A member of the RNA family "RAGATH-28 RNA", 86 nucleotides long. It is one of the family's seed sequences.
RNA sequence: AAACGGUUGAUUCGUCCUGUAAGCGGAAAUUGGUGGUUAAAUAGCAUGAACUAUCCUAGAAAAUAAAAUAUCUGGGAUGGCAAAGC
Numbered sequence: 001a002a003a004c005g006g007u008u009g010a011u012u013c014g015u016c017c018u019g020u021a022a023g024c025g026g027a028a029a030u031u032g033g034u035g036g037u038u039a040a041a042u043a044g045c046a047u048g049a050a051c052u053a054u055c056c057u058a059g060a061a062a063a064u065a066a067a068a069u070a071u072c073u074g075g076g077a078u079g080g081c082a083a084a085g086c
Stems, first nucleotide, its partner, number of pairs: 003020004055076006